[Rfam]
Nucleotides: 129
Base pairs, nucleotide, nucleotide: 002058003057004056005055006054007053014046015045016044017043018042019041020040021039025036026035071122072121073120074119075118078115079114080113081112087108088107090106091105092104093103094102
Number, partner (000 for none) and nucleotide at each position: 001000a002058g003057g004056u005055c006054a007053u008000u009000u010000c011000a012000a013000a014046g015045a016044g017043g018042g019041c020040u021039u022000g023000g024000u025036g026035g027000c028000u029000g030000u031000a032000a033000a034000a035026c036025c037000a038000a039021a040020a041019g042018c043017u044016c045015u046014u047000a048000a049000c050000g051000c052000u053007g054006u055005g056004a057003c058002c059000a060000a061000a062000g063000a064000u065000u066000g067000a068000u069000g070000u071122u072121c073120u074119u075118c076000a077000c078115a079114g080113a081112g082000c083000a084000g085000a086000c087108c088107a089000u090106g091105c092104a093103c094102u095000u096000u097000g098000u099000g100000a101000u102094a103093g104092u105091g106090c107088u108087g109000u110000u111000u112081u113080u114079c115078u116000g117000a118075g119074a120073a121072g122071a123000u124000a125000a126000c127000a128000u129000g